Rfam assigns this 242-nucleotide sequence from Oryctes borbonicus to the family "RNase MRP". The source organism's lineage runs through Eukaryota, Bilateria, Mandibulata, Neuropteroidea and Oryctes. Rfam's curators write: RNase MRP is an enzymatically active ribonucleoprotein with two distinct roles in eukaryotes.
RNA sequence: GGAUUCUCUUAAACCUAACCAUCGGGGUCACAUACAGAGUUCGCCGUAACUCAUAUACCUCCCUGAGAAAGGUCCCCGGAUCUAUGGCAGAGAGUGCCGCUGGCUAAGGCCAGUUAGCCGCAAACCCGUCGCUGUAGGACAGGAGGAUUCCGAUCUGUGCACGAUAGUUUGCGGUAUUUGGUCAGAGCAAAGGGAUGCUAGGAUUCUGCGAAUUGCAAAACGGGGCCUGUUCUAAGAGAAUC
Numbered sequence: 001g002g003a004u005u006c007u008c009u010u011a012a013a014c015c016u017a018a019c020c021a022u023c024g025g026g027g028u029c030a031c032a033u034a035c036a037g038a039g040u041u042c043g044c045c046g047u048a049a050c051u052c053a054u055a056u057a058c059c060u061c062c063c064u065g066a067g068a069a070a071g072g073u074c075c076c077c078g079g080a081u082c083u084a085u086g087g088c089a090g091a092g093a094g095u096g097c098c099g100c101u102g103g104c105u106a107a108g109g110c111c112a113g114u115u116a117g118c119c120g121c122a123a124a125c126c127c128g129u130c131g132c133u134g135u136a137g138g139a140c141a142g143g144a145g146g147a148u149u150c151c152g153a154u155c156u157g158u159g160c161a162c163g164a165u166a167g168u169u170u171g172c173g174g175u176a177u178u179u180g181g182u183c184a185g186a187g188c189a190a191a192g193g194g195a196u197g198c199u200a201g202g203a204u205u206c207u208g209c210g211a212a213u214u215g216c217a218a219a220a221c222g223g224g225g226c227c228u229g230u231u232c233u234a235a236g237a238g239a240a241u242c
Base pairs, nucleotide, nucleotide: 002242003241004240005239006238007237008236009235010234011233014202015201016200017199019197022066023065024064025063026062027061037052038051039050040049041048070228071227072226074225075224076223077222086098087097088096089095099114100113101112102111103110104109116175118173120172121171122170123169124168125167129163146155147154148153204212205211206210
By type it is a ribozyme. For this family Rfam cites "Secondary structure of RNase MRP RNA as predicted by phylogenetic comparison" (Schmitt et al., FASEB J, 1993).